[Rfam]
RNA sequence: UAAAUGAUUAGAGGUCGCAACCAACAAAAGUAACUAAUUGAACCGACAGGUCAAGAGAUUAGUGAAAGGGGCGGUUGCCGAAAUGGAGUGCAGGUAUGUUGACUCUGUUGGUCUAAAUGUUAAUAGCAUUUGGACUGUCGUAACUUUUGUUACGGAGCGCUAUCGACAAA
Numbered sequence: 001u002a003a004a005u006g007a008u009u010a011g012a013g014g015u016c017g018c019a020a021c022c023a024a025c026a027a028a029a030g031u032a033a034c035u036a037a038u039u040g041a042a043c044c045g046a047c048a049g050g051u052c053a054a055g056a057g058a059u060u061a062g063u064g065a066a067a068g069g070g071g072c073g074g075u076u077g078c079c080g081a082a083a084u085g086g087a088g089u090g091c092a093g094g095u096a097u098g099u100u101g102a103c104u105c106u107g108u109u110g111g112u113c114u115a116a117a118u119g120u121u122a123a124u125a126g127c128a129u130u131u132g133g134a135c136u137g138u139c140g141u142a143a144c145u146u147u148u149g150u151u152a153c154g155g156a157g158c159g160c161u162a163u164c165g166a167c168a169a170a
Stems, first nucleotide, its partner, number of pairs: 009162003017078006025070001033063007082109008091101003110136011138155007
A member of the RNA family "Lysine riboswitch aptamer" from Weissella diestrammenae, 170 nucleotides long. A search with the family's covariance model found it, with a score of 104 bits.